The record is a 102-nucleotide sequence from Halalkalibacter krulwichiae, which matches "Purine riboswitch aptamer" in Rfam.
[Rfam]
RNA sequence: UGUGAAGAAUAGUAUUCUUUUCGUAUAAUUGCAGGGAUAUGGCCUGCGAGUCUCUACCAAGCUUCCGUAAAGAGCUUGACUACGAAAAAAUCAAUCUAUCCC
Number, nucleotide and partner (000 for none) at each position: 001u000002g000003u000004g000005a000006a000007g000008a000009a000010u000011a000012g000013u000014a000015u000016u000017c000018u088019u087020u086021u085022c084023g083024u082025a081026u000027a000028a000029u049030u048031g047032c046033a045034g044035g043036g000037a000038u000039a000040u000041g000042g000043c035044c034045u033046g032047c031048g030049a029050g000051u000052c000053u000054c000055u000056a000057c000058c078059a077060a076061g075062c074063u073064u072065c000066c000067g000068u000069a000070a000071a000072g064073a063074g062075c061076u060077u059078g058079a000080c000081u025082a024083c023084g022085a021086a020087a019088a018089a000090a000091u000092c000093a000094a000095u000096c000097u000098a000099u000100c000101c000102c000